[Rfam]
RNA sequence: ACCUUAUCAAGAGAGGUGGAGGGAAUGGGCCCAAUGAAACCCGGCAACCUGUAAUAUAUUACAAGGUGCUAAGUCCCACAGAACACGGAUUCUGAAAGAUGAGGU
Numbered sequence: 001a002c003c004u005u006a007u008c009a010a011g012a013g014a015g016g017u018g019g020a021g022g023g024a025a026u027g028g029g030c031c032c033a034a035u036g037a038a039a040c041c042c043g044g045c046a047a048c049c050u051g052u053a054a055u056a057u058a059u060u061a062c063a064a065g066g067u068g069c070u071a072a073g074u075c076c077c078a079c080a081g082a083a084c085a086c087g088g089a090u091u092c093u094g095a096a097a098g099a100u101g102a103g104g105u
Base pairs, nucleotide, nucleotide: 001105002104003103004102005101006100007099008098013042015041016040017039021032022031023030026078027077028076029075043070044069045068046067048066049065050063051062052061053060074097079094080093081092082091083090
SAM riboswitch aptamer (S box leader): a 105-nucleotide sequence from Caldisalinibacter kiritimatiensis. NCBI's taxonomy places the organism under Bacteria, Bacillati, Tissierellia, Tissierellales, Caldisalinibacter.